[Rfam]
RNA sequence: CGGUGGGGUAGAGGCGCAACAGUCAUCAGUCGCAUACGGGAGUGACGCUCCACAAUGAUCGUAUGCUAAAGGGGCCGUUGCCGAAGUGGCUGACACAGACGAAAAGUCGGCUGCUGGGGUCAUAUCGAACAGGUAUGGCACUGUCAUGGUUGGUUUAACCAUGGAGGACUACUCUGGAG
Numbered sequence: 001c002g003g004u005g006g007g008g009u010a011g012a013g014g015c016g017c018a019a020c021a022g023u024c025a026u027c028a029g030u031c032g033c034a035u036a037c038g039g040g041a042g043u044g045a046c047g048c049u050c051c052a053c054a055a056u057g058a059u060c061g062u063a064u065g066c067u068a069a070a071g072g073g074g075c076c077g078u079u080g081c082c083g084a085a086g087u088g089g090c091u092g093a094c095a096c097a098g099a100c101g102a103a104a105a106g107u108c109g110g111c112u113g114c115u116g117g118g119g120u121c122a123u124a125u126c127g128a129a130c131a132g133g134u135a136u137g138g139c140a141c142u143g144u145c146a147u148g149g150u151u152g153g154u155u156u157a158a159c160c161a162u163g164g165a166g167g168a169c170u171a172c173u174c175u176g177g178a179g
Base pairs, nucleotide, nucleotide: 006174007173008172009171010170011169016081017080018079019078020077022075023074024073032066033065034064035063036062037061038060039059085115086114087113088112089111090110091109092108093107094106116142117141119139120138121137122136123135124134125133126132144164145163146162147161148160149159150158
RNA: Lysine riboswitch aptamer
Organism: Salisediminibacterium beveridgei